RNA sequence: UUGGCAUCUUUUACUCUGCCAGGGUCUUCCAAAAGACCCGGAGCACAAUUUUUGGAGACUUCUUCAUUAGAAGAAGUUA
Numbered sequence: 001u002u003g004g005c006a007u008c009u010u011u012u013a014c015u016c017u018g019c020c021a022g023g024g025u026c027u028u029c030c031a032a033a034a035g036a037c038c039c040g041g042a043g044c045a046c047a048a049u050u051u052u053u054g055g056a057g058a059c060u061u062c063u064u065c066a067u068u069a070g071a072a073g074a075a076g077u078u079a
Stems, first nucleotide, its partner, number of pairs: 022039003026035003057078009

SmY spliceosomal RNA: a 79-nucleotide sequence from Steinernema hermaphroditum. By type it is a spliceosomal small nuclear RNA. Pairs were carried over by alignment from the consensus structure, which is taken from published work. The organism belongs to Steinernema, within Eukaryota.